[Rfam]
Rfam assigns this 140-nucleotide RNA from Charadrius vociferus to the family "Small nucleolar RNA SNORA75". The family's RNA type in Rfam is H/ACA-box small nucleolar RNA. Taxonomically the source falls in Charadrius (Eukaryota, Dipnotetrapodomorpha, Tetrapoda, Sauropsida).
RNA sequence: CACUUCUCAAUGAGCUCCUUCCUGCCAACAAACCCGUGGCAGCCUAUGGAUUCGCACGAGAAGAAUAUUAACUGUACAGUACUGGCAAACUCACAACGGGGCUCCCAUCGAUUGUGAGUAGCCACCGCUGUUCGACAAGU
Number, nucleotide and partner (000 for none) at each position: 001c000002a000003c063004u062005u061006c060007u059008c058009a000010a000011u000012g000013a000014g055015c054016u050017c049018c048019u000020u000021c000022c042023u041024g040025c039026c038027a000028a000029c000030a000031a000032a000033c000034c000035c000036g000037u000038g026039g025040c024041a023042g022043c000044c000045u000046a000047u000048g018049g017050a016051u000052u000053c000054g015055c014056a000057c000058g008059a007060g006061a005062a004063g003064a000065a000066u000067a000068u000069u000070a000071a000072c000073u000074g133075u000076a131077c130078a129079g128080u000081a000082c000083u000084g000085g000086c000087a000088a000089a000090c000091u000092c000093a000094c000095a000096a112097c000098g000099g000100g000101g000102c000103u000104c000105c000106c000107a000108u000109c000110g000111a000112u096113u000114g000115u000116g000117a000118g000119u000120a000121g000122c000123c000124a000125c000126c000127g000128c079129u078130g077131u076132u000133c074134g000135a000136c000137a000138a000139g000140u000
Gene Ontology terms of the family: RNA processing and nucleolus.